[Rfam]
RNA sequence: UGCCUUUAUGUGUUGCCGGUUCAUUGCUUUCAUAGUGGACUGGGUGUCAACUAAGGCAUACAGUAACUCUCGCCGUUGUCUCUGAAGGGAGUUGUCUGUGAUUUCUCUCCGAACGAUGGCGAGGACACGC
Numbered sequence: 001u002g003c004c005u006u007u008a009u010g011u012g013u014u015g016c017c018g019g020u021u022c023a024u025u026g027c028u029u030u031c032a033u034a035g036u037g038g039a040c041u042g043g044g045u046g047u048c049a050a051c052u053a054a055g056g057c058a059u060a061c062a063g064u065a066a067c068u069c070u071c072g073c074c075g076u077u078g079u080c081u082c083u084g085a086a087g088g089g090a091g092u093u094g095u096c097u098g099u100g101a102u103u104u105c106u107c108u109c110c111g112a113a114c115g116a117u118g119g120c121g122a123g124g125a126c127a128c129g130c
Stems, first nucleotide, its partner, number of pairs: 002057005011049002014046004018041008069123004073118001075117005087109003091105001
RNA: Small nucleolar RNA SNORA13